Plant signal recognition particle RNA: a 306-nucleotide sequence from Vigna radiata. Taxonomically the source falls in Vigna radiata (Eukaryota, Magnoliopsida, Pentapetalae, fabids). A search with the family's covariance model found it, with a score of 172 bits.
RNA sequence: GUCGAGCUAAGUCACAAGAGCUUGUAACCCAAGUGGGGGCAUGAAGGUGAUGGAACAACUUUGUGGUUCUCGGGUUGGAGUUGUGGAUGCUAAAAACUGGCUUACCCAUUCCAAGUUGAGAGUAGGGUGAUGGGACAUGUGUGAAGGAAUAAGUCUCAACUCUCUUAGACAAGAGGGAACUAUGUGAGGCUUGUUUCACAAAGCAACAAUUACCUCUAUCUCUCAAUAGUGGAGGGAUAACAAGUUAUCAACACCACCCUCUAAAGAAUAACCUGGACUGCCACACUUCCUUGGACUAUCACCUUU
Numbered sequence: 001g002u003c004g005a006g007c008u009a010a011g012u013c014a015c016a017a018g019a020g021c022u023u024g025u026a027a028c029c030c031a032a033g034u035g036g037g038g039g040c041a042u043g044a045a046g047g048u049g050a051u052g053g054a055a056c057a058a059c060u061u062u063g064u065g066g067u068u069c070u071c072g073g074g075u076u077g078g079a080g081u082u083g084u085g086g087a088u089g090c091u092a093a094a095a096a097c098u099g100g101c102u103u104a105c106c107c108a109u110u111c112c113a114a115g116u117u118g119a120g121a122g123u124a125g126g127g128u129g130a131u132g133g134g135a136c137a138u139g140u141g142u143g144a145a146g147g148a149a150u151a152a153g154u155c156u157c158a159a160c161u162c163u164c165u166u167a168g169a170c171a172a173g174a175g176g177g178a179a180c181u182a183u184g185u186g187a188g189g190c191u192u193g194u195u196u197c198a199c200a201a202a203g204c205a206a207c208a209a210u211u212a213c214c215u216c217u218a219u220c221u222c223u224c225a226a227u228a229g230u231g232g233a234g235g236g237a238u239a240a241c242a243a244g245u246u247a248u249c250a251a252c253a254c255c256a257c258c259c260u261c262u263a264a265a266g267a268a269u270a271a272c273c274u275g276g277a278c279u280g281c282c283a284c285a286c287u288u289c290c291u292u293g294g295a296c297u298a299u300c301a302c303c304u305u306u
Stems, first nucleotide, its partner, number of pairs: 001040003004023005028037003043306011056293002062285006070276007077262004085255001088253002091250001098247006106236002109234005115227008125164003129160001131158006138151003142147001172217005183208003191200001